[Rfam]
RNA: TeloSII non coding RNA 33
Organism: Microthlaspi erraticum
RNA sequence: UUUACUCUCGUCAGCCAAAAUUUGAAUACAAAAUGCUCAACUCUCUCACUCAUAUAUUUACAGUAAAACAGACACCAACAAACCCCACAUCAAAGCGUUUACUUCACAUCACACCCAAAAUACAAACUGUUAAUAAAGAGGAUUCCUUCAAAAUUUUGCCAAGGUAAAAAAAAAGUGCAUAUUAACUUAAACUAGAGAAGCCUCCUCCUGAAAGUUCUAGUAGUUGAUUGAUAAGUACGGACGAGAAGGCCAACACCAAUCCCAAGACCAACACACACACCAAGUCCAAU
Numbered sequence: 001u002u003u004a005c006u007c008u009c010g011u012c013a014g015c016c017a018a019a020a021u022u023u024g025a026a027u028a029c030a031a032a033a034u035g036c037u038c039a040a041c042u043c044u045c046u047c048a049c050u051c052a053u054a055u056a057u058u059u060a061c062a063g064u065a066a067a068a069c070a071g072a073c074a075c076c077a078a079c080a081a082a083c084c085c086c087a088c089a090u091c092a093a094a095g096c097g098u099u100u101a102c103u104u105c106a107c108a109u110c111a112c113a114c115c116c117a118a119a120a121u122a123c124a125a126a127c128u129g130u131u132a133a134u135a136a137a138g139a140g141g142a143u144u145c146c147u148u149c150a151a152a153a154u155u156u157u158g159c160c161a162a163g164g165u166a167a168a169a170a171a172a173a174a175g176u177g178c179a180u181a182u183u184a185a186c187u188u189a190a191a192c193u194a195g196a197g198a199a200g201c202c203u204c205c206u207c208c209u210g211a212a213a214g215u216u217c218u219a220g221u222a223g224u225u226g227a228u229u230g231a232u233a234a235g236u237a238c239g240g241a242c243g244a245g246a247a248g249g250c251c252a253a254c255a256c257c258a259a260u261c262c263c264a265a266g267a268c269c270a271a272c273a274c275a276c277a278c279a280c281c282a283a284g285u286c287c288a289a290u
Base pairs, nucleotide, nucleotide: 011211012210013209014208023060024059025058026057027056028055030053035044093131094130097127098126099125100124103120104119138207139206140205141204142203145200147198148197156196157195162193163192175180214280215279216277218275220272221271223268224267225266226261227260228259229258230257235254236253239251242248